[Rfam]
RNA sequence: AUGCCAUAGUGUCUGGGCAAAGUGGACCGUUUUUAUGGUACUGUCUUAAUCCACUUUUGGCAAUACCAAAAGCUUUGUAUAAUCCCUGCUCACCUGGUGGUGUGACAGAUUCAUGACAUUGCGACAAUC
Numbered sequence: 001a002u003g004c005c006a007u008a009g010u011g012u013c014u015g016g017g018c019a020a021a022g023u024g025g026a027c028c029g030u031u032u033u034u035a036u037g038g039u040a041c042u043g044u045c046u047u048a049a050u051c052c053a054c055u056u057u058u059g060g061c062a063a064u065a066c067c068a069a070a071a072g073c074u075u076u077g078u079a080u081a082a083u084c085c086c087u088g089c090u091c092a093c094c095u096g097g098u099g100g101u102g103u104g105a106c107a108g109a110u111u112c113a114u115g116a117c118a119u120u121g122c123g124a125c126a127a128u129c
Stems, first nucleotide, its partner, number of pairs: 003061003008055003015052003020047003023043003026039005073123001075121001077119002080116001086108003091102004
Dot-bracket structure: ..(((..(((....(((..(((((((((((....))))).))).)))..))))))...)))...........(.(.((.(.....(((..((((....))))...))).......).)).).)......